[Rfam]
Annotation
Rfam assigns this 69-nucleotide sequence from Pigmentiphaga humi to the family "Fluoride riboswitch aptamer (crcB RNA motif)". Its family is annotated with response to fluoride and positive regulation of gene expression in the Gene Ontology. The match comes from Rfam's covariance-model search (53 bits).
RNA sequence: UCGAAGCCAGGAGAUGGCAUGCCUCCUUCAACCGCCGCGCAGCUCGCGGCUGAUGAUGCCUACAGGUCC
Numbered sequence: 001u002c003g004a005a006g007c008c009a010g011g012a013g014a015u016g017g018c019a020u021g022c023c024u025c026c027u028u029c030a031a032c033c034g035c036c037g038c039g040c041a042g043c044u045c046g047c048g049g050c051u052g053a054u055g056a057u058g059c060c061u062a063c064a065g066g067u068c069c
Stems, first nucleotide, its partner, number of pairs: 010026004016060005034050006